[Rfam]
RNA sequence: UCAUAAACCCGAUUGUAGCGAAAAUACUUUUUGUUGUAUUUCUUGUUCUUCUAAUGGUGCAUGCUCACAAAAAGAUUGCAGCGAAAGCGGGACCCAAC
Number, nucleotide and partner (000 for none) at each position: 001u000002c000003a000004u000005a000006a000007a000008c000009c090010c089011g088012a000013u086014u085015g000016u000017a000018g082019c081020g000021a000022a000023a077024a076025u075026a000027c000028u000029u072030u071031u070032u069033g068034u067035u000036g065037u000038a000039u000040u000041u000042c000043u000044u000045g000046u000047u000048c000049u000050u000051c000052u000053a000054a000055u000056g000057g000058u000059g000060c000061a000062u000063g000064c000065u036066c000067a034068c033069a032070a031071a030072a029073a000074g000075a025076u024077u023078g000079c000080a000081g019082c018083g000084a000085a014086a013087g000088c011089g010090g009091g000092a000093c000094c000095c000096a000097a000098c000
Rfam assigns this 98-nucleotide sequence from Pedobacter rhizosphaerae to the family "Flavo-1 RNA". Pairs were carried over by alignment from the consensus structure, which is taken from published work. The organism belongs to Pedobacter, within Bacteria. The family has 201 seed sequences and 7,497 matches in Rfam 15.1.